[Rfam]
Nucleotides: 164
Stems, first nucleotide, its partner, number of pairs: 012122004016048006023042005049090004054086001056083003060079001062077003092117003095113003099109002138163006146155003
Number, partner (000 for none) and nucleotide at each position: 001000a002000u003000a004000c005000u006000u007000a008000c009000c010000u011000g012122g013121c014120a015119g016048g017047g018046g019045a020044g021043a022000u023042a024041c025040c026039a027038u028000g029000a030000u031000c032000a033000g034000g035000a036000a037000g038027g039026u040025g041024g042023u043021u044020c045019u046018c047017c048016c049090a050089a051088g052087g053000c054086g055000a056083g057082g058081c059000u060079c061000a062077g063076c064075c065000a066000u067000u068000g069000c070000a071000c072000g073000c074000c075064g076063g077062c078000a079060g080000g081058g082057c083056u084000g085000a086054u087052c088051u089050u090049u091000g092117c093116g094115a095113a096112u097111u098000c099109c100108c101000c102000a103000a104000a105000u106000g107000c108100g109099g110000g111097a112096a113095u114000c115094u116093c117092g118000a119015c120014u121013g122012c123000a124000g125000a126000a127000u128000u129000u130000c131000u132000g133000g134000u135000a136000g137000u138163g139162g140161g141160g142159g143158a144000c145000u146155g147154c148153g149000u150000u151000c152000g153148c154147g155146c156000u157000c158143u159142c160141c161140c162139c163138u164000c